mir-8904 microRNA precursor family: a 101-nucleotide RNA from Canis lupus. Its family is annotated with RISC complex and miRNA-mediated post-transcriptional gene silencing in the Gene Ontology. Pairs were carried over by alignment from the consensus structure, which was predicted with RNAalifold.
[Rfam]
RNA sequence: CCUCAGGCUCCCUGGGACACUAACAGAUACCUGCGCCCUGGGGAGAGUGCGCCGAGCUCCCUAAAGGGCUGCAGCGCACACGGUGGGACCAGGGAGCAGCU
Numbered sequence: 001c002c003u004c005a006g007g008c009u010c011c012c013u014g015g016g017a018c019a020c021u022a023a024c025a026g027a028u029a030c031c032u033g034c035g036c037c038c039u040g041g042g043g044a045g046a047g048u049g050c051g052c053c054g055a056g057c058u059c060c061c062u063a064a065a066g067g068g069c070u071g072c073a074g075c076g077c078a079c080a081c082g083g084u085g086g087g088a089c090c091a092g093g094g095a096g097c098a099g100c101u
Stems, first nucleotide, its partner, number of pairs: 007097006014090002018086001020083002028076001031074004035069004040062006048054002